Rfam assigns this 249-nucleotide sequence from Candidatus Accumulibacter cognatus to the family "Group II catalytic intron D1-D4-6". Rfam 15.1 lists 1,617 matches to the family in 661 species. Taxonomically the source falls in Candidatus Accumulibacter (Bacteria, Pseudomonadati, Pseudomonadota, Betaproteobacteria).

[Rfam]
RNA sequence: GAGGUCCCGUCCCGGUAGCCGCUAGCCACGGGCCGGGUAUCGAGCCUUGCAGGUAUAGUGGUAACACUAUGCUUGAUGCGUAGGCGCGAAAGCAGGCGAGGAGCAAUGGUAACGGAUAAUGCCGACCGUGAAGGUUAAGAGUCCCGAAAUGACCGCUUUGGAAUGGGCCGAUGGUUUCAAGACGCCAGCAGGCAACAGCGCAACCCACACUAUGGCAAGUGAGUUGUGCCCACCCGGGAUCGACGACCG
Numbered sequence: 001g002a003g004g005u006c007c008c009g010u011c012c013c014g015g016u017a018g019c020c021g022c023u024a025g026c027c028a029c030g031g032g033c034c035g036g037g038u039a040u041c042g043a044g045c046c047u048u049g050c051a052g053g054u055a056u057a058g059u060g061g062u063a064a065c066a067c068u069a070u071g072c073u074u075g076a077u078g079c080g081u082a083g084g085c086g087c088g089a090a091a092g093c094a095g096g097c098g099a100g101g102a103g104c105a106a107u108g109g110u111a112a113c114g115g116a117u118a119a120u121g122c123c124g125a126c127c128g129u130g131a132a133g134g135u136u137a138a139g140a141g142u143c144c145c146g147a148a149a150u151g152a153c154c155g156c157u158u159u160g161g162a163a164u165g166g167g168c169c170g171a172u173g174g175u176u177u178c179a180a181g182a183c184g185c186c187a188g189c190a191g192g193c194a195a196c197a198g199c200g201c202a203a204c205c206c207a208c209a210c211u212a213u214g215g216c217a218a219g220u221g222a223g224u225u226g227u228g229c230c231c232a233c234c235c236g237g238g239a240u241c242g243a244c245g246a247c248c249g
Stems, first nucleotide, its partner, number of pairs: 012036004019031003023218001025216002038091001040089002044085004048080002050075011139241001141240006160234002164232003167193003172187004198229007206221003